This 84-nucleotide RNA sequence from Galemys pyrenaicus belongs to the Rfam family "Stem loopII regulatory element in POLB". By type it is a cis-regulatory element. The match comes from Rfam's covariance-model search (64 bits). On this family, see Sarnowska et al., Nucleic Acids Res 2007: "Hairpin structure within the 3'UTR of DNA polymerase beta mRNA acts as a post-transcriptional regulatory element and interacts with Hax-1". Pairs were carried over by alignment from the consensus structure, which is taken from published work. Its family is annotated with regulation of RNA stability in the Gene Ontology.
[Rfam]
RNA sequence: AAUCUGUUAGAAACCUUAAUUUAUUUCUUAGUCUCUGCUCUAAGAGUCUUUGGUGUUUUUAGAUUAUUGUUUCUUCUUCAUGCU
Numbered sequence: 001a002a003u004c005u006g007u008u009a010g011a012a013a014c015c016u017u018a019a020u021u022u023a024u025u026u027c028u029u030a031g032u033c034u035c036u037g038c039u040c041u042a043a044g045a046g047u048c049u050u051u052g053g054u055g056u057u058u059u060u061a062g063a064u065u066a067u068u069g070u071u072u073c074u075u076c077u078u079c080a081u082g083c084u
Stems, first nucleotide, its partner, number of pairs: 009077004016062004025053002031047002034044001036042002